[Rfam]
c-di-GMP-I riboswitch aptamer: a 92-nucleotide RNA sequence from Pelosinus sp. UFO1.
RNA sequence: AACUUUUAUUAGCAAACAUACUGAAAAGUAUGGACGCAAAGCUAUAGGGUCUACGGAUUUUUUUAGAGAUCUAUGAUCGCCACGCUGCAUGA
Numbered sequence: 001a002a003c004u005u006u007u008a009u010u011a012g013c014a015a016a017c018a019u020a021c022u023g024a025a026a027a028g029u030a031u032g033g034a035c036g037c038a039a040a041g042c043u044a045u046a047g048g049g050u051c052u053a054c055g056g057a058u059u060u061u062u063u064u065a066g067a068g069a070u071c072u073a074u075g076a077u078c079g080c081c082a083c084g085c086u087g088c089a090u091g092a
Stems, first nucleotide, its partner, number of pairs: 012037002017032006040086003045082001047081002049077003056071006
A search with the family's covariance model found it, with a score of 59 bits.